[Rfam]
RNA: Lysine riboswitch aptamer
Organism: Mobilitalea sibirica
RNA sequence: UGUAAGGAUAGAGGCGUACUUGACAAGAGUAGAUAAGAAAUUGACUUUAAGAGAAGUCUACAAUUUUUAUUGAAAGGGGAUAGUACCGAAGAUUGAAUUGCUCUUACAAUUCAUAUCUGGUUACAAGGUGAAUAGCUUUGUAAUUGUCACCUUUGGGUGGAGUGCUAUCUUGUUU
Dot-bracket structure: .....((((((....(((((...(.......((((((((........................))))))))......)...)))))...(((.(((((((......)))))))..)))(((((((((((.....))))))))))).(((((....)))))....)))))).....
Numbered sequence: 001u002g003u004a005a006g007g008a009u010a011g012a013g014g015c016g017u018a019c020u021u022g023a024c025a026a027g028a029g030u031a032g033a034u035a036a037g038a039a040a041u042u043g044a045c046u047u048u049a050a051g052a053g054a055a056g057u058c059u060a061c062a063a064u065u066u067u068u069a070u071u072g073a074a075a076g077g078g079g080a081u082a083g084u085a086c087c088g089a090a091g092a093u094u095g096a097a098u099u100g101c102u103c104u105u106a107c108a109a110u111u112c113a114u115a116u117c118u119g120g121u122u123a124c125a126a127g128g129u130g131a132a133u134a135g136c137u138u139u140g141u142a143a144u145u146g147u148c149a150c151c152u153u154u155g156g157g158u159g160g161a162g163u164g165c166u167a168u169c170u171u172g173u174u175u
Stems, first nucleotide, its partner, number of pairs: 006170006016086005024078001032071008090118003094113007119145011147160005